[Rfam]
A member of the RNA family "Purine riboswitch aptamer" from Ligilactobacillus salivarius, 98 nucleotides long. Its family is annotated with purine nucleobase biosynthetic process in the Gene Ontology. It scores 70 bits against the family's covariance model. Taxonomically the source falls in Ligilactobacillus salivarius (Bacteria, Bacillati, Bacilli, Lactobacillaceae). The family's consensus secondary structure is taken from published work. Rfam describes the family as follows. Riboswitches are metabolite binding domains within certain messenger RNAs that serve as precision sensors for their corresponding targets.
RNA sequence: UGUUAUCUUUAAAUAUAUACUUAUAUAUCGUCAUAAUAUGGGUGACAGUUUCUACCCAGGACCUUAAAUCUUGGACUAUAAGUAAUUAAGCAUAGUAU
Number, nucleotide and partner (000 for none) at each position: 001u000002g000003u000004u000005a000006u000007c000008u000009u000010u000011a000012a000013a000014u000015a000016u000017a000018u084019a083020c082021u081022u080023a079024u078025a077026u000027a000028u000029c000030g046031u045032c044033a043034u042035a000036a000037u000038a000039u000040g000041g000042g034043u033044g032045a031046c030047a000048g000049u000050u000051u000052c000053u000054a000055c000056c074057c073058a072059g071060g070061a069062c000063c000064u000065u000066a000067a000068a000069u061070c060071u059072u058073g057074g056075a000076c000077u025078a024079u023080a022081a021082g020083u019084a018085a000086u000087u000088a000089a000090g000091c000092a000093u000094a000095g000096u000097a000098u000